Record summary
This 75-nucleotide RNA from Streptomyces sp. Rer75 belongs to the Rfam family "ASpks TB sRNA". On this family, see Arnvig and Young, Mol Microbiol 2009: "Identification of small RNAs in Mycobacterium tuberculosis". The base pairs follow the family's consensus structure, which is taken from published work.
[Rfam]
RNA sequence: CUUCACCGAACCCAGCCACAAGGGCUCGUCCUCGGACCGCGCCUGACCAUACGUCGCCAGCAACGCCUGCGCCUC
Numbered sequence: 001c002u003u004c005a006c007c008g009a010a011c012c013c014a015g016c017c018a019c020a021a022g023g024g025c026u027c028g029u030c031c032u033c034g035g036a037c038c039g040c041g042c043c044u045g046a047c048c049a050u051a052c053g054u055c056g057c058c059a060g061c062a063a064c065g066c067c068u069g070c071g072c073c074u075c
Stems, first nucleotide, its partner, number of pairs: 014026004031071001033069001038065002043060003047056001049054001